RNA: Small nucleolar RNA SNORD82
RNA sequence: AGCACACUUGAUGAACAACAAGGGACUUAAUACUGAAUGUAUUUGAUGUUGCUACUUAUUUGAUCUGAUGUGC
Numbered sequence: 001a002g003c004a005c006a007c008u009u010g011a012u013g014a015a016c017a018a019c020a021a022g023g024g025a026c027u028u029a030a031u032a033c034u035g036a037a038u039g040u041a042u043u044u045g046a047u048g049u050u051g052c053u054a055c056u057u058a059u060u061u062g063a064u065c066u067g068a069u070g071u072g073c
Stems, first nucleotide, its partner, number of pairs: 002073005